[Rfam]
RNA: U2 spliceosomal RNA
Organism: Salvelinus namaycush
RNA sequence: AUAUUUUUUAUAUAAAAUAAUAAAAAAAAAAAAAAAAAAAAUCUGUUCUUAUCAGUUUAAUAUCUGAUACGUCCCCUAUCUGGGGACCAUAUAUUAAAUUGAUUUUUGGAACAGGGAGAUGGAAUAGGGGCUUGCUCCGUCCACUCCACGCAUCGACCUGGUAUUGCAGUACCUCCAGGAACGGUGCACCCCCU
Numbered sequence: 001a002u003a004u005u006u007u008u009u010a011u012a013u014a015a016a017a018u019a020a021u022a023a024a025a026a027a028a029a030a031a032a033a034a035a036a037a038a039a040a041a042u043c044u045g046u047u048c049u050u051a052u053c054a055g056u057u058u059a060a061u062a063u064c065u066g067a068u069a070c071g072u073c074c075c076c077u078a079u080c081u082g083g084g085g086a087c088c089a090u091a092u093a094u095u096a097a098a099u100u101g102a103u104u105u106u107u108g109g110a111a112c113a114g115g116g117a118g119a120u121g122g123a124a125u126a127g128g129g130g131c132u133u134g135c136u137c138c139g140u141c142c143a144c145u146c147c148a149c150g151c152a153u154c155g156a157c158c159u160g161g162u163a164u165u166g167c168a169g170u171a172c173c174u175c176c177a178g179g180a181a182c183g184g185u186g187c188a189c190c191c192c193c194u
Stems, first nucleotide, its partner, number of pairs: 050069006071087006115147004121141002127138004150187006157179005